[Rfam]
RNA sequence: AAACGUGCUCCGGGGUCGGUGCAAGUCCGAACCGGCGGUGAUAGUCCGCGAGCCGGGAGCGCGUGGCCGUCCGGCCGCGCGCGAACGGUUGAACCGGUGGAACUCCGGUACCGACGGUGAAAGUCCGGAUGGGAGGCGGCACGGGU
Numbered sequence: 001a002a003a004c005g006u007g008c009u010c011c012g013g014g015g016u017c018g019g020u021g022c023a024a025g026u027c028c029g030a031a032c033c034g035g036c037g038g039u040g041a042u043a044g045u046c047c048g049c050g051a052g053c054c055g056g057g058a059g060c061g062c063g064u065g066g067c068c069g070u071c072c073g074g075c076c077g078c079g080c081g082c083g084a085a086c087g088g089u090u091g092a093a094c095c096g097g098u099g100g101a102a103c104u105c106c107g108g109u110a111c112c113g114a115c116g117g118u119g120a121a122a123g124u125c126c127g128g129a130u131g132g133g134a135g136g137c138g139g140c141a142c143g144g145g146u
Base pairs, nucleotide, nucleotide: 004143005142006141007140008139009136010135017029018028019027031124032123033113034112035049036048037047038046044111045110052089053088054087093109094108095107096106097105115127116126117125
The record is a 146-nucleotide RNA from Agromyces sp. NDB4Y10, which matches "FMN riboswitch aptamer (RFN element)" in Rfam. The match comes from Rfam's covariance-model search (82 bits).